[Rfam]
RNA sequence: AAACAGCCCCCUAUGUUUUGAUUCUUUGACAGUUUUGAAACCCAAGGCAAAAAAAAAAAAAAAAAUAGACACGUGGCACCUCGCUUAAGGUGCCACAUCAGCGUUGACCGAGUCAACAAUGGACUGGGGGUCCAAAACUGCCAAAGAAUCAAAACAUAGGGGGUUGUUU
Numbered sequence: 001a002a003a004c005a006g007c008c009c010c011c012u013a014u015g016u017u018u019u020g021a022u023u024c025u026u027u028g029a030c031a032g033u034u035u036u037g038a039a040a041c042c043c044a045a046g047g048c049a050a051a052a053a054a055a056a057a058a059a060a061a062a063a064a065a066u067a068g069a070c071a072c073g074u075g076g077c078a079c080c081u082c083g084c085u086u087a088a089g090g091u092g093c094c095a096c097a098u099c100a101g102c103g104u105u106g107a108c109c110g111a112g113u114c115a116a117c118a119a120u121g122g123a124c125u126g127g128g129g130g131u132c133c134a135a136a137a138c139u140g141c142c143a144a145a146g147a148a149u150c151a152a153a154a155c156a157u158a159g160g161g162g163g164u165u166g167u168u169u
Stems, first nucleotide, its partner, number of pairs: 001169002004166005012158017030140008039131001041129003045125001071098001074095007
RNA: MIR2619 microRNA precursor family